Small nucleolar RNA SNORA25: a 129-nucleotide sequence from Rhinolophus ferrumequinum. The family's RNA type in Rfam is H/ACA-box small nucleolar RNA. Rfam describes the family as follows. ACA25 is a member of the H/ACA class of snoRNA that guide the sites of modification of uridines to pseudouridines. Pairs were carried over by alignment from the consensus structure, which was predicted with RNAfold. Its family is annotated with RNA processing and nucleolus in the Gene Ontology. It scores 86 bits against the family's covariance model. The source organism's lineage runs through Eukaryota, Euteleostomi, Theria, Boreoeutheria and Rhinolophus.

RNA sequence: AGGUCAUUUCAAAGAGGGCACAUGGGGCUGUGAAACGCUGAACUCUUAACUCUAUGACCAAAGAUUUAAGUUGCCCAUUGGAUGCCAUAGUCAUUCAAUACUGCCAAGUUUUUCUGAGGGGCUAUAGGA
Numbered sequence: 001a002g003g004u005c006a007u008u009u010c011a012a013a014g015a016g017g018g019c020a021c022a023u024g025g026g027g028c029u030g031u032g033a034a035a036c037g038c039u040g041a042a043c044u045c046u047u048a049a050c051u052c053u054a055u056g057a058c059c060a061a062a063g064a065u066u067u068a069a070g071u072u073g074c075c076c077a078u079u080g081g082a083u084g085c086c087a088u089a090g091u092c093a094u095u096c097a098a099u100a101c102u103g104c105c106a107a108g109u110u111u112u113u114c115u116g117a118g119g120g121g122c123u124a125u126a127g128g129a
Base pairs, nucleotide, nucleotide: 002059003058004057005056006055007054014047015046016045017044018043021040027036074120075119076118080114081113082112088106090104092103093102095100